Rfam assigns this 81-nucleotide sequence from Homo sapiens to the family "mir-3158 microRNA precursor family". Lineage of the source: Eukaryota > Bilateria > Craniata > Theria > Homo.
RNA sequence: AUUCAGGCCGGUCCUGCAGAGAGGAAGCCCUUCCAAUACCUGUAAGCAGAAGGGCUUCCUCUCUGCAGGACCGGCCUGAAU
Numbered sequence: 001a002u003u004c005a006g007g008c009c010g011g012u013c014c015u016g017c018a019g020a021g022a023g024g025a026a027g028c029c030c031u032u033c034c035a036a037u038a039c040c041u042g043u044a045a046g047c048a049g050a051a052g053g054g055c056u057u058c059c060u061c062u063c064u065g066c067a068g069g070a071c072c073g074g075c076c077u078g079a080a081u
Stems, first nucleotide, its partner, number of pairs: 001081033036043002
The base pairs follow the family's consensus structure, which was predicted with RNAalifold. Gene Ontology terms of the family: miRNA-mediated post-transcriptional gene silencing and RISC complex.